The family of this 55-nucleotide RNA from Streptomyces sp. NRRL S-104 is "L17-Actino-Proteobacteria ribosomal protein leader".
The family's RNA type in Rfam is cis-regulatory leader.

RNA sequence: CCCUCUCGCGACCGCUUGAGGGAACUGACACCGGUACCUGACACGGCCGGUGCAG
Dot-bracket structure: (((((..((....))..)))))..(((.(((((((..........))))))))))